[Rfam]
Nucleotides: 103
Base pairs, nucleotide, nucleotide: 007090008089009088010087011053012052013051014050016047017028018027019026035046036045037044038043059084060083061082062081065078066077067076068075
Number, partner (000 for none) and nucleotide at each position: 001000c002000c003000g004000c005000u006000u007090c008089c009088u010087a011053a012052g013051g014050g015000g016047u017028g018027g019026c020000c021000a022000c023000u024000g025000c026019g027018c028017c029000u030000g031000a032000g033000a034000u035046g036045u037044u038043g039000c040000u041000u042000a043038c044037a045036g046035c047016a048000g049000a050014c051013c052012c053011u054000u055000u056000g057000a058000a059084c060083c061082u062081g063000a064000u065078c066077c067076g068075g069000a070000u071000a072000a073000c074000a075068c076067c077066g078065g079000c080000g081062u082061a083060g084059g085000a086000a087010u088009a089008g090007g091000u092000a093000u094000c095000u096000g097000c098000c099000u100000u101000u102000g103000g

TPP riboswitch aptamer (THI element): a 103-nucleotide RNA sequence from marine gamma proteobacterium HTCC2148. A search with the family's covariance model found it, with a score of 71 bits. Taxonomically the source falls in Halieaceae (Bacteria, Pseudomonadati, Pseudomonadota, Gammaproteobacteria).